[Rfam]
RNA sequence: UCGUGCUAGACGGGGAGGUAGCGGUGCCCUGUAACCCGCAAUCCGCUAUAGCGGGGUUGAAGCCUGUACUGAGGUCCUAUUACGUGUGGUCUGCCCCAAAUAAGUGGCGUUGACGAUUGGGUCCUGUGCAACGGAAUGUCAUGAACCUCGUCAGGUCCGGAAGGAAGCAGCGAUAAGUGAAUUUUUUCGUGUGCCGCAGGGUUGCCUGGUCUGAGCUAACUGUUUGGGUUACGCACGGGUGAUAGCGAUCGAAGGCAGGCGCACGA
Numbered sequence: 001u002c003g004u005g006c007u008a009g010a011c012g013g014g015g016a017g018g019u020a021g022c023g024g025u026g027c028c029c030u031g032u033a034a035c036c037c038g039c040a041a042u043c044c045g046c047u048a049u050a051g052c053g054g055g056g057u058u059g060a061a062g063c064c065u066g067u068a069c070u071g072a073g074g075u076c077c078u079a080u081u082a083c084g085u086g087u088g089g090u091c092u093g094c095c096c097c098a099a100a101u102a103a104g105u106g107g108c109g110u111u112g113a114c115g116a117u118u119g120g121g122u123c124c125u126g127u128g129c130a131a132c133g134g135a136a137u138g139u140c141a142u143g144a145a146c147c148u149c150g151u152c153a154g155g156u157c158c159g160g161a162a163g164g165a166a167g168c169a170g171c172g173a174u175a176a177g178u179g180a181a182u183u184u185u186u187u188c189g190u191g192u193g194c195c196g197c198a199g200g201g202u203u204g205c206c207u208g209g210u211c212u213g214a215g216c217u218a219a220c221u222g223u224u225u226g227g228g229u230u231a232c233g234c235a236c237g238g239g240u241g242a243u244a245g246c247g248a249u250c251g252a253a254g255g256c257a258g259g260c261g262c263a264c265g266a
Stems, first nucleotide, its partner, number of pairs: 001266006009058003012030004017025001019023001035055005064259002069254002073250004079243005085237004092231002096227006104220002106217003115211008123200006129191002132189005139180004148173004156165003